[Rfam]
Rfam assigns this 74-nucleotide sequence from Rhizobium etli to the family "Makes More Granules Regulator RNA (mmgR)". The family has 87 seed sequences and 1,791 matches in Rfam 15.1. A reference for the family is Valverde et al. (2008), "Prediction of Sinorhizobium meliloti sRNA genes and experimental detection in strain 2011", BMC Genomics.
RNA sequence: UGUAAAUACCCUCCUUGGGUGUUUCCUCCCUAGACUUAGCCGCGCUGACAAGCGCGGUUCUUUUUUGGCCCUUG
Numbered sequence: 001u002g003u004a005a006a007u008a009c010c011c012u013c014c015u016u017g018g019g020u021g022u023u024u025c026c027u028c029c030c031u032a033g034a035c036u037u038a039g040c041c042g043c044g045c046u047g048a049c050a051a052g053c054g055c056g057g058u059u060c061u062u063u064u065u066u067g068g069c070c071c072u073u074g
Base pairs, nucleotide, nucleotide: 008020009019010018011017038059039058040057041056042055043054044053045052046051
The source organism's lineage runs through Bacteria, Pseudomonadati, Alphaproteobacteria, Rhizobium and Rhizobium etli.